Small nucleolar RNA snoR2/U65: a 147-nucleotide RNA from Cuscuta campestris.
The family's RNA type in Rfam is H/ACA-box small nucleolar RNA.
Rfam links the family to the GO terms RNA processing and nucleolus.

RNA sequence: GGUUCGUGCCACGUCGCCGGUAGCUUCUCCCAGCAUUGACCGGCGAUGCUACGAACGAACCAAAAUCAAAGGGCUUUCGCAUUAUAUAGGAAACUACUGAUGGAUAUAUUCUAUUCCUCUGUAGAGCCGUUUCGUGCGAUAACAUUU
Numbered sequence: 001g002g003u004u005c006g007u008g009c010c011a012c013g014u015c016g017c018c019g020g021u022a023g024c025u026u027c028u029c030c031c032a033g034c035a036u037u038g039a040c041c042g043g044c045g046a047u048g049c050u051a052c053g054a055a056c057g058a059a060c061c062a063a064a065a066u067c068a069a070a071g072g073g074c075u076u077u078c079g080c081a082u083u084a085u086a087u088a089g090g091a092a093a094c095u096a097c098u099g100a101u102g103g104a105u106a107u108a109u110u111c112u113a114u115u116c117c118u119c120u121g122u123a124g125a126g127c128c129g130u131u132u133c134g135u136g137c138g139a140u141a142a143c144a145u146u147u
Stems, first nucleotide, its partner, number of pairs: 002060005007054001008052001012048006019041003023034003077139005089128002094124003099119002102116001